Background:
7SK RNA: a 311-nucleotide RNA sequence from Capra hircus. For this family Rfam cites "Structural analyses of the 7SK ribonucleoprotein (RNP), the most abundant human small RNP of unknown function" (Wassarman and Steitz, Mol Cell Biol, 1991).
[Rfam]
RNA sequence: GGAUGUGAGGGCGAUCUGGUUGCGACAUCUGUCACCCCAUUGAUCGCCAGGGUUGAUUCGGCUGAUCUGGCUGGCUAGGCGGGUGUCCCCUUCCUCCCUCACCGCUCCAUGUGCGUCCCUCCCGAAGCUGCGCGCUCGGUCGAAGAGGACGACCAUCCCCGAUAGAGGAGGACCGGUCUUCGGUCAAGGGUAUACGAGUAGCUGCGCUCCCCUGCUAGAACCUCCAAACAAGCUCUCAAGAACCUACUAUUUUUAAAUUGAAAAAUUCAAUUUCAUUCUUGGACAAUUAAAUUGUAACUAUUUCCAGGGGA
Numbered sequence: 001g002g003a004u005g006u007g008a009g010g011g012c013g014a015u016c017u018g019g020u021u022g023c024g025a026c027a028u029c030u031g032u033c034a035c036c037c038c039a040u041u042g043a044u045c046g047c048c049a050g051g052g053u054u055g056a057u058u059c060g061g062c063u064g065a066u067c068u069g070g071c072u073g074g075c076u077a078g079g080c081g082g083g084u085g086u087c088c089c090c091u092u093c094c095u096c097c098c099u100c101a102c103c104g105c106u107c108c109a110u111g112u113g114c115g116u117c118c119c120u121c122c123c124g125a126a127g128c129u130g131c132g133c134g135c136u137c138g139g140u141c142g143a144a145g146a147g148g149a150c151g152a153c154c155a156u157c158c159c160c161g162a163u164a165g166a167g168g169a170g171g172a173c174c175g176g177u178c179u180u181c182g183g184u185c186a187a188g189g190g191u192a193u194a195c196g197a198g199u200a201g202c203u204g205c206g207c208u209c210c211c212c213u214g215c216u217a218g219a220a221c222c223u224c225c226a227a228a229c230a231a232g233c234u235c236u237c238a239a240g241a242a243c244c245u246a247c248u249a250u251u252u253u254u255a256a257a258u259u260g261a262a263a264a265a266u267u268c269a270a271u272u273u274c275a276u277u278c279u280u281g282g283a284c285a286a287u288u289a290a291a292u293u294g295u296a297a298c299u300a301u302u303u304c305c306a307g308g309g310g311a
Stems, first nucleotide, its partner, number of pairs: 001108003005102007013093002018090002024087010035074002037070003042067004046062003116171002118168004122139004127135002140162003147158003201272001203270001208265001213262001215260001223255001228251001231248002276311003280306004285299001287297003
Rfam 15.1 lists 49,373 matches to the family in 668 species. The organism belongs to Capra, within Eukaryota. About the family: 7SK was discovered as an abundant small nuclear RNA in the mid-70s but a possible function has only recently been suggested. Clan: 7SK clan. The match comes from Rfam's covariance-model search (283 bits).